[Rfam]
RNA sequence: UCCUCUUCAACGCUGCGUUUCUAUGCUACAAACGGAGAGGCUGCGCGCAAGCGCAGUCUCUCGAGGAAUCUUCCUCGCAAUGGCAUAUGAGAAAUUCGGAGUAACAUCUUCAUCACCACCCAAUGUCUCCUGCCCUGUUGCGGGAUGACAGGUCUGCCCGCGAGGGUCUGGCGUGAUUUCACGCUUGCAAUUGGCAUCAGAAAAGCAGGGCCCGGGCGUUUUCGUGCGUACCUCCGCCUCGGCGGGGGGAAGACGUGCGACUCGGUGUUUCCUUUGGGAGAGCCGUUGCGAAGAUUGUGCACAGCACUUGAGUGCGAUACGCAGCGUCUUGAUUCCCCAACGCCUUCAGGUGGCGGGGGUCUUGACAAUUCAAUUCCGAUCAUUCUGUUGAGGA
Numbered sequence: 001u002c003c004u005c006u007u008c009a010a011c012g013c014u015g016c017g018u019u020u021c022u023a024u025g026c027u028a029c030a031a032a033c034g035g036a037g038a039g040g041c042u043g044c045g046c047g048c049a050a051g052c053g054c055a056g057u058c059u060c061u062c063g064a065g066g067a068a069u070c071u072u073c074c075u076c077g078c079a080a081u082g083g084c085a086u087a088u089g090a091g092a093a094a095u096u097c098g099g100a101g102u103a104a105c106a107u108c109u110u111c112a113u114c115a116c117c118a119c120c121c122a123a124u125g126u127c128u129c130c131u132g133c134c135c136u137g138u139u140g141c142g143g144g145a146u147g148a149c150a151g152g153u154c155u156g157c158c159c160g161c162g163a164g165g166g167u168c169u170g171g172c173g174u175g176a177u178u179u180c181a182c183g184c185u186u187g188c189a190a191u192u193g194g195c196a197u198c199a200g201a202a203a204a205g206c207a208g209g210g211c212c213c214g215g216g217c218g219u220u221u222u223c224g225u226g227c228g229u230a231c232c233u234c235c236g237c238c239u240c241g242g243c244g245g246g247g248g249g250a251a252g253a254c255g256u257g258c259g260a261c262u263c264g265g266u267g268u269u270u271c272c273u274u275u276g277g278g279a280g281a282g283c284c285g286u287u288g289c290g291a292a293g294a295u296u297g298u299g300c301a302c303a304g305c306a307c308u309u310g311a312g313u314g315c316g317a318u319a320c321g322c323a324g325c326g327u328c329u330u331g332a333u334u335c336c337c338c339a340a341c342g343c344c345u346u347c348a349g350g351u352g353g354c355g356g357g358g359g360u361c362u363u364g365a366c367a368a369u370u371c372a373a374u375u376c377c378g379a380u381c382a383u384u385c386u387g388u389u390g391a392g393g394a
Stems, first nucleotide, its partner, number of pairs: 001394004008387002012325007022087004035078001037076004097378005109294002156167004170185005187289004193284003207273003326366003331361007
A member of the RNA family "Nuclear RNase P" from Colletotrichum musicola, 394 nucleotides long. Gene Ontology terms of the family: ribonuclease P complex, tRNA processing and ribonuclease P activity. The source organism's lineage runs through Eukaryota, Pezizomycotina, Glomerellales, Glomerellaceae and Colletotrichum orchidearum species complex. Rfam classes the family as a ribozyme.